[Rfam]
RNA sequence: AUCGCUUCUCGGCCAAUUUGGCUUAGAUCGUUGUUAGUAUCUGUUCUUGUCAGCGUAAUAUCUGACAUUCCUUUCAUUGAAAGGAAAUGAUGUUACAGCUUUUUUUGUGAAUAGGACAGGCUUUAGUGCUUGCACUUGUCCGUCCAAGGGUUGACCUCUUAUUGCAUUAAAGGGGGGGAUCGGCCCAAUUACU
Numbered sequence: 001a002u003c004g005c006u007u008c009u010c011g012g013c014c015a016a017u018u019u020g021g022c023u024u025a026g027a028u029c030g031u032u033g034u035u036a037g038u039a040u041c042u043g044u045u046c047u048u049g050u051c052a053g054c055g056u057a058a059u060a061u062c063u064g065a066c067a068u069u070c071c072u073u074u075c076a077u078u079g080a081a082a083g084g085a086a087a088u089g090a091u092g093u094u095a096c097a098g099c100u101u102u103u104u105u106u107g108u109g110a111a112u113a114g115g116a117c118a119g120g121c122u123u124u125a126g127u128g129c130u131u132g133c134a135c136u137u138g139u140c141c142g143u144c145c146a147a148g149g150g151u152u153g154a155c156c157u158c159u160u161a162u163u164g165c166a167u168u169a170a171a172g173g174g175g176g177g178g179a180u181c182g183g184c185c186c187a188a189u190u191a192c193u
Stems, first nucleotide, its partner, number of pairs: 007027003011023004048067006069085007114145004119140003125136004148186006155177006
RNA: U2 spliceosomal RNA